[Rfam]
RNA: ZMP/ZTP riboswitch aptamer (pfl RNA motif)
Organism: Saccharothrix sp. CB00851
RNA sequence: UCCAGUGUUCGCGACUGGCGUGCCGAGGGUGGGAACGACCACCGGGGAGCGUUGAGCCGGAUCGCACCGCGCGCCUGGGUGCUACGG
Numbered sequence: 001u002c003c004a005g006u007g008u009u010c011g012c013g014a015c016u017g018g019c020g021u022g023c024c025g026a027g028g029g030u031g032g033g034a035a036c037g038a039c040c041a042c043c044g045g046g047g048a049g050c051g052u053u054g055a056g057c058c059g060g061a062u063c064g065c066a067c068c069g070c071g072c073g074c075c076u077g078g079g080u081g082c083u084a085c086g087g
Base pairs, nucleotide, nucleotide: 006055010051011050012049015046016045017075018074019073020072021071029042030041031040032039064082065081066080067079068078